[Rfam]
The record is a 116-nucleotide sequence from Elaeis guineensis, which matches "U5 spliceosomal RNA" in Rfam. For this family Rfam cites "The uRNA database" (Zwieb, Nucleic Acids Res, 1997). The family's RNA type in Rfam is spliceosomal small nuclear RNA. NCBI's taxonomy places the organism under Eukaryota, Euphyllophyta, Petrosaviidae, Cocoseae, Elaeis.
RNA sequence: AGCUACGUGAUGGGUACAGAACGAACUAUUUUUUUGCCUUUUACUAAAGAAUACCAUGUGCCCGCCACAGAAAACAGCGUACGCCAAUUUUUGGAGGGGCUUCUCCUUAGAGAUUG
Number, nucleotide and partner (000 for none) at each position: 001a000002g000003c077004u076005a000006c000007g000008u067009g066010a000011u064012g063013g062014g061015u060016a059017c058018a057019g000020a000021a000022c000023g000024a000025a000026c000027u053028a052029u051030u050031u049032u048033u047034u046035u000036g000037c000038c000039u000040u000041u000042u000043a000044c000045u000046a034047a033048a032049g031050a030051a029052u028053a027054c000055c000056a000057u018058g017059u016060g015061c014062c013063c012064g011065c000066c009067a008068c000069a000070g000071a000072a000073a000074a000075c000076a004077g003078c000079g000080u000081a000082c000083g000084c000085c000086a000087a000088u000089u000090u000091u000092u000093g000094g000095a000096g000097g115098g114099g000100c112101u111102u110103c000104u000105c000106c000107u000108u000109a000110g102111a101112g100113a000114u098115u097116g000
Source information:
About the family: U5 RNA is a component of both types of known spliceosome. The precise function of this molecule is unknown, though it is known that the 5' loop is required for splice site selection and p220 binding, and that both the 3' stem-loop and the Sm site are important for Sm protein binding and cap methylation.